RNA sequence: ACGGUUGCGUGUGACUGGCGGAACAUGGACCAACCAUGGGGGAGCACGCGGCGGAACGAGCCGUACGCCUGGGCAGAGGUA
Numbered sequence: 001a002c003g004g005u006u007g008c009g010u011g012u013g014a015c016u017g018g019c020g021g022a023a024c025a026u027g028g029a030c031c032a033a034c035c036a037u038g039g040g041g042g043a044g045c046a047c048g049c050g051g052c053g054g055a056a057c058g059a060g061c062c063g064u065a066c067g068c069c070u071g072g073g074c075a076g077a078g079g080u081a
Stems, first nucleotide, its partner, number of pairs: 004052009015041002017069004025037004060074003
The record is an 81-nucleotide sequence from Cohnella candida, which matches "ZMP/ZTP riboswitch aptamer (pfl RNA motif)" in Rfam. It scores 60 bits against the family's covariance model. Pairs were carried over by alignment from the consensus structure, which is taken from published work.